[Rfam]
RNA sequence: CCUCUGGAAAGCCCGGUAUCCGUGACAGGGUGCCGGCACCGACGGAGUAAGGCGCGUCAACCCCGCGCUGAAUCUCUCAGGUCAUCGGACAGAGG
Numbered sequence: 001c002c003u004c005u006g007g008a009a010a011g012c013c014c015g016g017u018a019u020c021c022g023u024g025a026c027a028g029g030g031u032g033c034c035g036g037c038a039c040c041g042a043c044g045g046a047g048u049a050a051g052g053c054g055c056g057u058c059a060a061c062c063c064c065g066c067g068c069u070g071a072a073u074c075u076c077u078c079a080g081g082u083c084a085u086c087g088g089a090c091a092g093a094g095g
Stems, first nucleotide, its partner, number of pairs: 001095006013036007038082003041078002045076003051069006
The family of this 95-nucleotide sequence from Acetobacteraceae bacterium AT-5844 is "Glycine riboswitch aptamer". Rfam links the family to the GO term glycine biosynthetic process. From the family's description: This family represents the bacterial glycine riboswitch. The match comes from Rfam's covariance-model search (51 bits).